[Rfam]
RNA sequence: UGAAAAACAAAGCCGAAUUCCCUUCACCAGGGAAACGGGGGAACCACUUUGGGUGAAUUGAUCUCGCUUUAGAGGGAUCAUAGGGAACCUUCAACCGAAUCCUUAAGCUAACCUCGUAGGCAUUGGAAGGAGCAUAA
Numbered sequence: 001u002g003a004a005a006a007a008c009a010a011a012g013c014c015g016a017a018u019u020c021c022c023u024u025c026a027c028c029a030g031g032g033a034a035a036c037g038g039g040g041g042a043a044c045c046a047c048u049u050u051g052g053g054u055g056a057a058u059u060g061a062u063c064u065c066g067c068u069u070u071a072g073a074g075g076g077a078u079c080a081u082a083g084g085g086a087a088c089c090u091u092c093a094a095c096c097g098a099a100u101c102c103u104u105a106a107g108c109u110a111a112c113c114u115c116g117u118a119g120g121c122a123u124u125g126g127a128a129g130g131a132g133c134a135u136a137a
Stems, first nucleotide, its partner, number of pairs: 012121003018034006035117006051102003059080007083096002
RNA: c-di-AMP riboswitch aptamer (ydaO/yuaA leader)